[Rfam]
RNA sequence: ACUGGAGGACUAAGAAGGCUGAGUCUGAUGAAGUAAGACUUUGCUGAUACAUUCCUCCUAGAAAAAAGGGUUGGAGAGAGCAGCCUUCACUGAAGAGUAUCACAGGGCUGACUGUACUACCCAACACUC
Numbered sequence: 001a002c003u004g005g006a007g008g009a010c011u012a013a014g015a016a017g018g019c020u021g022a023g024u025c026u027g028a029u030g031a032a033g034u035a036a037g038a039c040u041u042u043g044c045u046g047a048u049a050c051a052u053u054c055c056u057c058c059u060a061g062a063a064a065a066a067a068g069g070g071u072u073g074g075a076g077a078g079a080g081c082a083g084c085c086u087u088c089a090c091u092g093a094a095g096a097g098u099a100u101c102a103c104a105g106g107g108c109u110g111a112c113u114g115u116a117c118u119a120c121c122c123a124a125c126a127c128u129c
Base pairs, nucleotide, nucleotide: 002061003060004058005057006056007055008054009053017045018044019043021041022040023039024038025037026036068122069121070120071119079113080112081110082109083108084107085106086105087104091102092101093100
Annotation: This 129-nucleotide sequence belongs to the Rfam family "Small Cajal body specific RNA 4".